A member of the RNA family "Small nucleolar RNA SNORA25" from Bos taurus, 126 nucleotides long.
[Rfam]
RNA sequence: AGGUCAUUUCAGAGAGGGCUGAUGGAACCAAAUCCCAGAGCUCUUAACACUGUGACCAAAGAUUGAGUUCUCCAUUGCAUAUUGUAGUCACUUGAUGGUGUUAUGCUUCCUGUUGGAGAUACAAGC
Numbered sequence: 001a002g003g004u005c006a007u008u009u010c011a012g013a014g015a016g017g018g019c020u021g022a023u024g025g026a027a028c029c030a031a032a033u034c035c036c037a038g039a040g041c042u043c044u045u046a047a048c049a050c051u052g053u054g055a056c057c058a059a060a061g062a063u064u065g066a067g068u069u070c071u072c073c074a075u076u077g078c079a080u081a082u083u084g085u086a087g088u089c090a091c092u093u094g095a096u097g098g099u100g101u102u103a104u105g106c107u108u109c110c111u112g113u114u115g116g117a118g119a120u121a122c123a124a125g126c
Stems, first nucleotide, its partner, number of pairs: 002057006014045007023037001024035002069119005076112002084104004089100004
Rfam links the family to the GO terms nucleolus and RNA processing. Rfam's curators write: ACA25 is a member of the H/ACA class of snoRNA that guide the sites of modification of uridines to pseudouridines.